[Rfam]
RNA sequence: AAGCUCGAGGACGAGGAGUUGGUGUCCUACGUUCUGGCUGGGCUUGACCCUGACUUUGAUUCUGCCGUGUCUGCCGUGGCGGCGCGUUCAGAUCCAAUCUCCAUGGGAGAACUCUAUGCGCAGCUCGUCGGCUUCGAGC
Numbered sequence: 001a002a003g004c005u006c007g008a009g010g011a012c013g014a015g016g017a018g019u020u021g022g023u024g025u026c027c028u029a030c031g032u033u034c035u036g037g038c039u040g041g042g043c044u045u046g047a048c049c050c051u052g053a054c055u056u057u058g059a060u061u062c063u064g065c066c067g068u069g070u071c072u073g074c075c076g077u078g079g080c081g082g083c084g085c086g087u088u089c090a091g092a093u094c095c096a097a098u099c100u101c102c103a104u105g106g107g108a109g110a111a112c113u114c115u116a117u118g119c120g121c122a123g124c125u126c127g128u129c130g131g132c133u134u135c136g137a138g139c
Stems, first nucleotide, its partner, number of pairs: 004138005088108002092104002

Shown here is a 139-nucleotide sequence from Eragrostis curvula, a member of the family "Small nucleolar RNA Z247".
Its family is annotated with nucleolus and RNA processing in the Gene Ontology.
The match comes from Rfam's covariance-model search (58 bits).
A reference for the family is Chen et al. (2003), "The high diversity of snoRNAs in plants: identification and comparative study of 120 snoRNA genes from Oryza sativa", Nucleic Acids Res.
Rfam 15.1 lists 7,071 matches to the family in 142 species.